RNA sequence: UUCUCCUGGUGUCCACUGCAGGCCUGUAUGGUCAAAUAAUUGCAUAAGGCACGCGGUGAAUGCCAAGAGCG
Numbered sequence: 001u002u003c004u005c006c007u008g009g010u011g012u013c014c015a016c017u018g019c020a021g022g023c024c025u026g027u028a029u030g031g032u033c034a035a036a037u038a039a040u041u042g043c044a045u046a047a048g049g050c051a052c053g054c055g056g057u058g059a060a061u062g063c064c065a066a067g068a069g070c071g
Stems, first nucleotide, its partner, number of pairs: 003069003009063004014058003018054002023049003027046004
Shown here is a 71-nucleotide sequence from Hermetia illucens, a member of the family "mir-124 microRNA precursor family". A reference for the family is Lai et al. (2003), "Computational identification of Drosophila microRNA genes", Genome Biol. The match comes from Rfam's covariance-model search (59 bits). The family has 122 seed sequences and 2,215 matches in Rfam 15.1.